[Rfam]
RNA: small nucleolar RNA snoR126
RNA sequence: AGGCUAUGAUGAACGCAACAUUUCUCGAUCCUGAUAUUGACCAAAGCAAUUAUAUUGCUCUUUGAUGACAGUGUUUGUGCGUGUCUGAGCCUC
Numbered sequence: 001a002g003g004c005u006a007u008g009a010u011g012a013a014c015g016c017a018a019c020a021u022u023u024c025u026c027g028a029u030c031c032u033g034a035u036a037u038u039g040a041c042c043a044a045a046g047c048a049a050u051u052a053u054a055u056u057g058c059u060c061u062u063u064g065a066u067g068a069c070a071g072u073g074u075u076u077g078u079g080c081g082u083g084u085c086u087g088a089g090c091c092u093c
Stems, first nucleotide, its partner, number of pairs: 001092004